[Rfam]
RNA: c-di-AMP riboswitch aptamer (ydaO/yuaA leader)
Organism: Gorillibacterium sp.
RNA sequence: AGAUAAAAUUUGCCGAAUCCGUUCUGAUUAAGAACGGUACGGGGGACUUAUUACUGGGGUGAAUGUCUGCUUGAUUUACGCAGACUAGGGAGAUUACCUCCUCCCGAACCCGUCAACUAACCUCGGAGGCUCUAGGAGGAAAUGAA
Number, nucleotide and partner (000 for none) at each position: 001a000002g000003a000004u000005a000006a000007a000008a000009u000010u000011u000012g130013c129014c128015g000016a000017a000018u000019c037020c036021g035022u034023u033024c032025u031026g000027a000028u000029u000030a000031a025032g024033a023034a022035c021036g020037g019038u000039a000040c125041g124042g123043g122044g121045g000046a000047c000048u000049u056050a055051u000052u000053a000054c000055u050056g049057g111058g110059g109060u000061g000062a000063a000064u000065g085066u084067c083068u082069g081070c080071u000072u000073g000074a000075u000076u000077u000078a000079c000080g070081c069082a068083g067084a066085c065086u000087a000088g105089g104090g103091a102092g000093a000094u000095u000096a000097c000098c000099u000100c000101c000102u091103c090104c089105c088106g000107a000108a000109c059110c058111c057112g000113u000114c000115a000116a000117c000118u000119a000120a000121c044122c043123u042124c041125g040126g000127a000128g014129g013130c012131u000132c000133u000134a000135g000136g000137a000138g000139g000140a000141a000142a000143u000144g000145a000146a000